Shown here is a 93-nucleotide RNA from Candidatus Viridilinea mediisalina, a member of the family "Selenocysteine transfer RNA".
Pairs were carried over by alignment from the consensus structure, which is taken from published work.
NCBI's taxonomy places the organism under Bacteria, Chloroflexota, Chloroflexales, Oscillochloridaceae, Candidatus Viridilinea.
The match comes from Rfam's covariance-model search (71 bits).
A reference for the family is Lowe and Eddy (1997), "tRNAscan-SE: a program for improved detection of transfer RNA genes in genomic sequence", Nucleic Acids Res.
[Rfam]
RNA sequence: GAGAGCGGAUGUAGCCGGGUGGCUGCCUUGGUCUUCAAAACCAAAGAGCGCGGUGACGAGCCGCGUUGGUGGGUUCGACUCCCACGCGCUCUC
Numbered sequence: 001g002a003g004a005g006c007g008g009a010u011g012u013a014g015c016c017g018g019g020u021g022g023c024u025g026c027c028u029u030g031g032u033c034u035u036c037a038a039a040a041c042c043a044a045a046g047a048g049c050g051c052g053g054u055g056a057c058g059a060g061c062c063g064c065g066u067u068g069g070u071g072g073g074u075u076c077g078a079c080u081c082c083c084a085c086g087c088g089c090u091c092u093c
Base pairs, nucleotide, nucleotide: 001093002092003091004090005089006088007087008085011026012025013024014023015022016021028044029043030042031041032040047067048066049065050064051063070084071083072082073081